[Rfam]
RNA sequence: UUGCUAUUUAAAAUAGUGGCUUCGAUAACAUUUUUCAUUAAUUUUUUAAUGACUAAUCGCAUACCGUUGCAUACCCGUGGCGG
Numbered sequence: 001u002u003g004c005u006a007u008u009u010a011a012a013a014u015a016g017u018g019g020c021u022u023c024g025a026u027a028a029c030a031u032u033u034u035u036c037a038u039u040a041a042u043u044u045u046u047u048a049a050u051g052a053c054u055a056a057u058c059g060c061a062u063a064c065c066g067u068u069g070c071a072u073a074c075c076c077g078u079g080g081c082g083g
Stems, first nucleotide, its partner, number of pairs: 002082006012068003016064003023059004032055001035052007
RNA: mir-1923 microRNA precursor family